Overview:
This 115-nucleotide RNA from Paracidovorax anthurii belongs to the Rfam family "ALIL pseudoknot". It is annotated as a cis-regulatory element. NCBI's taxonomy places the organism under Bacteria, Pseudomonadati, Burkholderiales, Comamonadaceae, Paracidovorax. The literature on the family includes a 2008 paper in J Biol Chem by Mazauric et al., "Apical loop-internal loop RNA pseudoknots: a new type of stimulator of -1 translational frameshifting in bacteria". The base pairs follow the family's consensus structure, which is taken from published work.
[Rfam]
RNA sequence: UGCAUUUUCGCCCAGGCGGAGCUCGACCGCCGACUGAAGUCUUGAGGGACUUCAUCGACAAGCACCCGGCACCCACGGGAUUGAGCCGAUCUGCAAGGUUCUGCAGGUCGCUCCG
Numbered sequence: 001u002g003c004a005u006u007u008u009c010g011c012c013c014a015g016g017c018g019g020a021g022c023u024c025g026a027c028c029g030c031c032g033a034c035u036g037a038a039g040u041c042u043u044g045a046g047g048g049a050c051u052u053c054a055u056c057g058a059c060a061a062g063c064a065c066c067c068g069g070c071a072c073c074c075a076c077g078g079g080a081u082u083g084a085g086c087c088g089a090u091c092u093g094c095a096a097g098g099u100u101c102u103g104c105a106g107g108u109c110g111c112u113c114c115g
Stems, first nucleotide, its partner, number of pairs: 015031005076115004087110002090107006